[Rfam]
A member of the RNA family "Mu-gpT-DE RNA", 54 nucleotides long. The family's consensus secondary structure is taken from published work. It is annotated as a small RNA. The sequence is in the family's curated seed alignment.
RNA sequence: CCUUGACAGUCGCAUUGGGCGGCUGACAUUUGCCUAGACAAGGAGAUUGAUAUG
Number, nucleotide and partner (000 for none) at each position: 001c000002c042003u041004u040005g039006a000007c025008a024009g023010u022011c021012g000013c000014a000015u000016u000017g000018g000019g000020c000021g011022g010023c009024u008025g007026a000027c000028a000029u000030u000031u000032g000033c000034c000035u000036a000037g000038a000039c005040a004041a003042g002043g000044a000045g000046a000047u000048u000049g000050a000051u000052a000053u000054g000